[Rfam]
RNA sequence: UACGGGGAUAUCUGAUAACCAGCACGGGCGGCGGAGUCAUCUCCACGCCCGUGCACGCAUGUUAAGGGGGCGAAAAUAAGC
Numbered sequence: 001u002a003c004g005g006g007g008a009u010a011u012c013u014g015a016u017a018a019c020c021a022g023c024a025c026g027g028g029c030g031g032c033g034g035a036g037u038c039a040u041c042u043c044c045a046c047g048c049c050c051g052u053g054c055a056c057g058c059a060u061g062u063u064a065a066g067g068g069g070g071c072g073a074a075a076a077u078a079a080g081c
Stems, first nucleotide, its partner, number of pairs: 004020002022054009033044004